RNA sequence: CUUCAACGACCCCAACCACAACGGACGACCCUCACCCCGGCCUUGUCCGUAGGUCGCCAAAAUCGCCUGCGCCUC
Numbered sequence: 001c002u003u004c005a006a007c008g009a010c011c012c013c014a015a016c017c018a019c020a021a022c023g024g025a026c027g028a029c030c031c032u033c034a035c036c037c038c039g040g041c042c043u044u045g046u047c048c049g050u051a052g053g054u055c056g057c058c059a060a061a062a063u064c065g066c067c068u069g070c071g072c073c074u075c
Base pairs, nucleotide, nucleotide: 016024017023031071033069038065039064043060044059045058047056049054

A member of the RNA family "ASpks TB sRNA" from Streptomyces bingchenggensis, 75 nucleotides long. By type it is an antisense RNA. The family has 77 seed sequences and 9,052 matches in Rfam 15.1. Taxonomically the source falls in Streptomyces bingchenggensis (Bacteria, Actinomycetota, Streptomycetaceae, Streptomyces).